[Rfam]
RNA: Actinobacteria sRNA Ms_IGR-5
RNA sequence: ACGCGGAAAGGAGGUGGUCCAAACAAUGGUGAUUCAUAGUUGGACUAGCGAGGUGGUUGUCCGCUGACGUCGCGGACUGUUGUCUCGUGCCGUUAGGCGAAUUCGAGGCAACCACCGGGGCCCCUGGCAGCCGGAGGGCGGGAUCUCAUCCUGGCCCGUUGGUCCAUCCGGCCCGUCUGCACGGCAGGCGGAGUGUUGCCUGGGGCCCUUCUU
Numbered sequence: 001a002c003g004c005g006g007a008a009a010g011g012a013g014g015u016g017g018u019c020c021a022a023a024c025a026a027u028g029g030u031g032a033u034u035c036a037u038a039g040u041u042g043g044a045c046u047a048g049c050g051a052g053g054u055g056g057u058u059g060u061c062c063g064c065u066g067a068c069g070u071c072g073c074g075g076a077c078u079g080u081u082g083u084c085u086c087g088u089g090c091c092g093u094u095a096g097g098c099g100a101a102u103u104c105g106a107g108g109c110a111a112c113c114a115c116c117g118g119g120g121c122c123c124c125u126g127g128c129a130g131c132c133g134g135a136g137g138g139c140g141g142g143a144u145c146u147c148a149u150c151c152u153g154g155c156c157c158g159u160u161g162g163u164c165c166a167u168c169c170g171g172c173c174c175g176u177c178u179g180c181a182c183g184g185c186a187g188g189c190g191g192a193g194u195g196u197u198g199c200c201u202g203g204g205g206c207c208c209u210u211c212u213u
Stems, first nucleotide, its partner, number of pairs: 013061006062099003065095004071089003117209008126200004133189001